[Rfam]
The record is a 91-nucleotide RNA from Enterovirus coxsackiepol, which matches "Enterovirus 5' cloverleaf cis-acting replication element" in Rfam. Lineage of the source: Viruses > Orthornavirae > Picornaviridae > Enterovirus coxsackiepol > Enterovirus C. The family's consensus secondary structure is taken from published work. The literature on the family includes a 2001 paper in EMBO J by Barton et al., "5' cloverleaf in poliovirus RNA is a cis-acting replication element required for negative-strand synthesis". Rfam links the family to the GO term negative stranded viral RNA replication. Rfam describes the family as follows. This family represents a cis-regulatory element found at the 5' end of Enterovirus genomes. The element has a cloverleaf like secondary structure and is known to be a multifunctional cis-acting replication element (CRE), required for the initiation of negative strand RNA synthesis.
RNA sequence: UUAAAACAGCCUGUGGGUUGUACCCACCCCAGAGGCCCACGUGGCGGCUAGUACUCCGGUAUUACGGUACCCUUGUACGCCUGUUUUAUAC
Numbered sequence: 001u002u003a004a005a006a007c008a009g010c011c012u013g014u015g016g017g018u019u020g021u022a023c024c025c026a027c028c029c030c031a032g033a034g035g036c037c038c039a040c041g042u043g044g045c046g047g048c049u050a051g052u053a054c055u056c057c058g059g060u061a062u063u064a065c066g067g068u069a070c071c072c073u074u075g076u077a078c079g080c081c082u083g084u085u086u087u088a089u090a091c
Stems, first nucleotide, its partner, number of pairs: 002088007010034001012032001015029004035045003047080002051078004058071004